[Rfam]
RNA sequence: GCCCUGUGGUUGCUGGGCACUGCUGUGCCUGUGCAGUGUUCCAGCUGGAGAUGGGCACACAGUGACUCUGUGAUGUACGCAGGGAGUCUGUGAUCCGUGAGCAGCCUCCACAGCCCGCUCACAGGCACACCC
Numbered sequence: 001g002c003c004c005u006g007u008g009g010u011u012g013c014u015g016g017g018c019a020c021u022g023c024u025g026u027g028c029c030u031g032u033g034c035a036g037u038g039u040u041c042c043a044g045c046u047g048g049a050g051a052u053g054g055g056c057a058c059a060c061a062g063u064g065a066c067u068c069u070g071u072g073a074u075g076u077a078c079g080c081a082g083g084g085a086g087u088c089u090g091u092g093a094u095c096c097g098u099g100a101g102c103a104g105c106c107u108c109c110a111c112a113g114c115c116c117g118c119u120c121a122c123a124g125g126c127a128c129a130c131c132c
Stems, first nucleotide, its partner, number of pairs: 001056004007050001010047001012045006019037005068124001070122004079114002083109002086106001088104004
Dot-bracket structure: ((((..(..(.((((((.(((((.........)))))..)))))).)..)..))))...........(.((((.....((..((.(.((((.........)))).).))...))....)))).)........
RNA: Small nucleolar RNA SNORA84